[Rfam]
RNA sequence: CUGACCAGGACGCAUGGGUCGACGUUCGUGCAACGAGCCCAUUCCACCUGCUAUAAGCAGGUGGAUGCCCCAAAAGUCAG
Numbered sequence: 001c002u003g004a005c006c007a008g009g010a011c012g013c014a015u016g017g018g019u020c021g022a023c024g025u026u027c028g029u030g031c032a033a034c035g036a037g038c039c040c041a042u043u044c045c046a047c048c049u050g051c052u053a054u055a056a057g058c059a060g061g062u063g064g065a066u067g068c069c070c071c072a073a074a075a076g077u078c079a080g
Stems, first nucleotide, its partner, number of pairs: 001080005009071001012068002015041004023035004043065010

Rfam assigns this 80-nucleotide RNA to the family "L4-Archaeoglobi ribosomal protein leades". Rfam classes the family as a cis-regulatory leader. The literature on the family includes a 2020 paper in BMC Microbiol by Eckert and Weinberg, "Discovery of 20 novel ribosomal leader candidates in bacteria and archaea".